[Rfam]
RNA sequence: ACAGAUGAAAAGCUGCGAGGCUCGCCCCAUACAAGUCUAUUAAGCCGCAAGCUUCAUUCGACUGCAUUCGCGAGCGGGCUAAGGUCUGAGCAUUCUAAUCAUUCUUGAUUGAUCCUAGCCGGGUCCAGCUGUAACCAGCUGCAACAGCAUAUCAGAAAUCCGGCUUGCUGCGUUCAAUCCUGCUUCAAAGGAAACCCAAAGACUGUCCAUAGACAAGAGGGUAUAACGCGGUAUAGUCUUGGAAUUUGCUGUAAUGAUUGGGUAGUCUCACAAACUCAGUCUAACUGAAGUGUGACUAUCCUUCAGCUCACUUCGCAGCGCAAGUAUUGGGUCUAUGAGACUCACUUGUAACUCGAUUCAGACUACUCUUCGUCUGU
Numbered sequence: 001a002c003a004g005a006u007g008a009a010a011a012g013c014u015g016c017g018a019g020g021c022u023c024g025c026c027c028c029a030u031a032c033a034a035g036u037c038u039a040u041u042a043a044g045c046c047g048c049a050a051g052c053u054u055c056a057u058u059c060g061a062c063u064g065c066a067u068u069c070g071c072g073a074g075c076g077g078g079c080u081a082a083g084g085u086c087u088g089a090g091c092a093u094u095c096u097a098a099u100c101a102u103u104c105u106u107g108a109u110u111g112a113u114c115c116u117a118g119c120c121g122g123g124u125c126c127a128g129c130u131g132u133a134a135c136c137a138g139c140u141g142c143a144a145c146a147g148c149a150u151a152u153c154a155g156a157a158a159u160c161c162g163g164c165u166u167g168c169u170g171c172g173u174u175c176a177a178u179c180c181u182g183c184u185u186c187a188a189a190g191g192a193a194a195c196c197c198a199a200a201g202a203c204u205g206u207c208c209a210u211a212g213a214c215a216a217g218a219g220g221g222u223a224u225a226a227c228g229c230g231g232u233a234u235a236g237u238c239u240u241g242g243a244a245u246u247u248g249c250u251g252u253a254a255u256g257a258u259u260g261g262g263u264a265g266u267c268u269c270a271c272a273a274a275c276u277c278a279g280u281c282u283a284a285c286u287g288a289a290g291u292g293u294g295a296c297u298a299u300c301c302u303u304c305a306g307c308u309c310a311c312u313u314c315g316c317a318g319c320g321c322a323a324g325u326a327u328u329g330g331g332u333c334u335a336u337g338a339g340a341c342u343c344a345c346u347u348g349u350a351a352c353u354c355g356a357u358u359c360a361g362a363c364u365a366c367u368c369u370u371c372g373u374c375u376g377u
Base pairs, nucleotide, nucleotide: 001377002376003375004374007371008370009369012319013318014317015316016315017314018313020075021074022073023072024071034063035062036061037060086361087360088359089358090357097259098258099257100256111125112124113123114122115121126141127140128139129138130137131136144252145251146250147249148248149247163238165236166235167234320349321348322347323346324345325344
A member of the RNA family "Nuclear RNase P" from Gymnopilus dilepis, 377 nucleotides long. From the family's description: Ribonuclease P (RNase P) is a ubiquitous endoribonuclease, found in archaea, bacteria and eukarya as well as chloroplasts and mitochondria. By type it is a ribozyme. The match comes from Rfam's covariance-model search (76 bits).